This 103-nucleotide RNA from Auanema sp. JU1783 belongs to the Rfam family "SL2 RNA". Rfam's curators write: This family represents SL2 RNA. SL2 RNA is involved in trans splicing in lower eukaryotes. Trans-splicing is a form of RNA processing. The acquisition of a spliced leader from a SL RNA is a intra-molecular reaction which precisely joins exons derived from separately transcribed RNAs. Approximately 25% of C. elegans genes are organised into polycistronic transcription units and the presence of SL2 on an mRNA is an indication the the gene is in an operon. Its Rfam clan is "SL clan". A reference for the family is Dassanayake et al. (2001), "Trans-spliced leader RNA, 5S-rRNA genes and novel variant orphan spliced-leader of the lymphatic filarial nematode Wuchereria bancrofti, and a sensitive polymerase chain reaction based detection assay", Gene.

RNA sequence: GGUUUUUACCUGUAUCUCAAGGUAAACUUGAGUUUCGACCAUUCUUUGAAUAUUGUGUUGAAAAUUUUUGGAAAGCCUUUACGGGGUAAACCGUUCGGGCAAU
Numbered sequence: 001g002g003u004u005u006u007u008a009c010c011u012g013u014a015u016c017u018c019a020a021g022g023u024a025a026a027c028u029u030g031a032g033u034u035u036c037g038a039c040c041a042u043u044c045u046u047u048g049a050a051u052a053u054u055g056u057g058u059u060g061a062a063a064a065u066u067u068u069u070g071g072a073a074a075g076c077c078u079u080u081a082c083g084g085g086g087u088a089a090a091c092c093g094u095u096c097g098g099g100c101a102a103u
Base pairs, nucleotide, nucleotide: 008033009030012027013026015024017022036060037059038058039057040055041054043052078101080099082097083096084095085094086092
Lineage of the source: Eukaryota > Opisthokonta > Metazoa > Eumetazoa > Auanema. Rfam classes the family as a non-coding RNA gene. The match comes from Rfam's covariance-model search (46 bits).